Annotation: ZMP/ZTP riboswitch aptamer (pfl RNA motif): an 86-nucleotide RNA sequence from Streptomyces sp. FH025. It scores 58 bits against the family's covariance model. The organism belongs to Streptomyces, within Bacteria.

[Rfam]
Nucleotides: 086
Base pairs, nucleotide, nucleotide: 003053005051006050007049008048009047010046011045012044015041016040017074018073019072020071021070026037027036028035029034064080065079066078067077
Number, partner (000 for none) and nucleotide at each position: 001000u002000u003053g004000g005051c006050g007049g008048g009047c010046c011045g012044u013000g014000a015041c016040u017074g018073g019072c020071g021070c022000u023000u024000g025000g026037g027036u028035g029034g030000g031000g032000u033000a034029c035028c036027a037026c038000c039000g040016g041015g042000g043000a044012g045011c046010g047009g048008c049007c050006u051005g052000g053003c054000a055000u056000c057000c058000u059000g060000u061000c062000a063000c064080u065079g066078c067077c068000g069000c070021g071020c072019g073018c074017c075000u076000g077067g078066g079065c080064g081000a082000u083000c084000c085000g086000u